[Rfam]
Nucleotides: 082
Base pairs, nucleotide, nucleotide: 001082002081003080004079
Number, partner (000 for none) and nucleotide at each position: 001082u002081u003080g004079a005000a006000g007000u008000g009000a010000u011000g012000a013000u014000c015000u016000u017000a018000g019000a020000g021000a022000a023000c024000g025000g026000u027000u028000u029000c030000g031000c032000u033000a034000a035000c036000u037000u038000u039000a040000c041000u042000g043000a044000c045000a046000u047000u048000g049000a050000g051000u052000g053000a054000u055000g056000u057000c058000u059000u060000u061000a062000u063000u064000c065000u066000c067000u068000u069000g070000g071000c072000u073000a074000u075000c076000u077000g078000a079004u080003c081002a082001a